[Rfam]
RNA sequence: CCUGCUUCGUCGCUGAGUCCCGUCACGAAGGCCAGGUAUCACUUCGCAUGAUGCGGAGCGACGGGAACGGUGCACCCAGCAUCCGGGCCACUUCGGUGGUUCUUGGGGUAAAGCUCACUUCGGUGGGCCGAGAAUCUAGGAUCUCGAACCCGACAGGUCAUGCCUCGUAAGCGCUCCUGGAAAUGAAU
Numbered sequence: 001c002c003u004g005c006u007u008c009g010u011c012g013c014u015g016a017g018u019c020c021c022g023u024c025a026c027g028a029a030g031g032c033c034a035g036g037u038a039u040c041a042c043u044u045c046g047c048a049u050g051a052u053g054c055g056g057a058g059c060g061a062c063g064g065g066a067a068c069g070g071u072g073c074a075c076c077c078a079g080c081a082u083c084c085g086g087g088c089c090a091c092u093u094c095g096g097u098g099g100u101u102c103u104u105g106g107g108g109u110a111a112a113g114c115u116c117a118c119u120u121c122g123g124u125g126g127g128c129c130g131a132g133a134a135u136c137u138a139g140g141a142u143c144u145c146g147a148a149c150c151c152g153a154c155a156g157g158u159c160a161u162g163c164c165u166c167g168u169a170a171g172c173g174c175u176c177c178u179g180g181a182a183a184u185g186a187a188u
Stems, first nucleotide, its partner, number of pairs: 011173004018066007067168004072163001077105002106151003114127004130145004
c-di-AMP riboswitch aptamer (ydaO/yuaA leader): a 188-nucleotide RNA from Dermacoccus sp. 147Ba. The match comes from Rfam's covariance-model search (38 bits). NCBI's taxonomy places the organism under Bacteria, Actinomycetota, Actinomycetes, Dermacoccaceae, Dermacoccus.